The record is a 106-nucleotide RNA from Clostridium sp. CT7, which matches "azaaromatic riboswitch aptamer (yjdF RNA)" in Rfam.
[Rfam]
RNA sequence: UAAUAUGAAGAUAAAAACACAGUUUGGUUGGUAGUCCAAACGCAUUUAUUUAUAGUAAAUGUCAGUAACCUGCCCUCGUUGGUUGUCCGUUCUUCGUAAUAUGGGU
Numbered sequence: 001u002a003a004u005a006u007g008a009a010g011a012u013a014a015a016a017a018c019a020c021a022g023u024u025u026g027g028u029u030g031g032u033a034g035u036c037c038a039a040a041c042g043c044a045u046u047u048a049u050u051u052a053u054a055g056u057a058a059a060u061g062u063c064a065g066u067a068a069c070c071u072g073c074c075c076u077c078g079u080u081g082g083u084u085g086u087c088c089g090u091u092c093u094u095c096g097u098a099a100u101a102u103g104g105g106u
Stems, first nucleotide, its partner, number of pairs: 004098008022041006042062009072083003

The organism belongs to Clostridium, within Bacteria.